A member of the RNA family "skipping-rope RNA", 93 nucleotides long. It is annotated as a small RNA.
[Rfam]
RNA sequence: AAGCUUAGAGGUUGAAAAGUAUCCGUCUCCAACGCGCCACCGAAAUGGUGGGUCGAGAAAUGCGGGCGACAAAAGGCGGUCCCGCCUAAGCUU
Numbered sequence: 001a002a003g004c005u006u007a008g009a010g011g012u013u014g015a016a017a018a019g020u021a022u023c024c025g026u027c028u029c030c031a032a033c034g035c036g037c038c039a040c041c042g043a044a045a046u047g048g049u050g051g052g053u054c055g056a057g058a059a060a061u062g063c064g065g066g067c068g069a070c071a072a073a074a075g076g077c078g079g080u081c082c083c084g085c086c087u088a089a090g091c092u093u
Stems, first nucleotide, its partner, number of pairs: 001093008011033004023079005035057001037051005062085005